A member of the RNA family "raiA-hairpin RNA" from Streptomyces sp. adm13(2018), 47 nucleotides long. Pairs were carried over by alignment from the consensus structure, which is taken from published work. The organism belongs to Streptomyces, within Bacteria. Rfam classes the family as a small RNA.

RNA sequence: CGCCGAGUCCGAGCUCCGGUGAACGACCGGAGACUGGUGCAAAGGGA
Numbered sequence: 001c002g003c004c005g006a007g008u009c010c011g012a013g014c015u016c017c018g019g020u021g022a023a024c025g026a027c028c029g030g031a032g033a034c035u036g037g038u039g040c041a042a043a044g045g046g047a
Base pairs, nucleotide, nucleotide: 013034014032015031016030017029018028019027